RNA sequence: UUAAUGGAUGACUAGGGUUCCGGCUUGGCAAACAAUGCUUAAGUGACUGGUCCGAGAGUUAUCGACCUUCCUGAAGGUUACACGGCGGGACAAAAACCCGGGAGAC
Numbered sequence: 001u002u003a004a005u006g007g008a009u010g011a012c013u014a015g016g017g018u019u020c021c022g023g024c025u026u027g028g029c030a031a032a033c034a035a036u037g038c039u040u041a042a043g044u045g046a047c048u049g050g051u052c053c054g055a056g057a058g059u060u061a062u063c064g065a066c067c068u069u070c071c072u073g074a075a076g077g078u079u080a081c082a083c084g085g086c087g088g089g090a091c092a093a094a095a096a097c098c099c100g101g102g103a104g105a106c
Stems, first nucleotide, its partner, number of pairs: 007063006015053002020050002022047001023044006064079006081101001083104001087099003
A member of the RNA family "Guanidine-I riboswitch aptamer" from Tolumonas auensis, 106 nucleotides long. The base pairs follow the family's consensus structure. It scores 84 bits against the family's covariance model. From the family's description: This family represents a conserved RNA structure found upstream of the ykkC and yxkD genes in Bacillus subtilis and related genes in other bacteria. The function of this family is unclear although it has been suggested that it may function to switch on efflux pumps and detoxification systems in response to harmful environmental molecules. A reference for the family is Barrick et al. (2004), "New RNA motifs suggest an expanded scope for riboswitches in bacterial genetic control", Proc Natl Acad Sci U S A.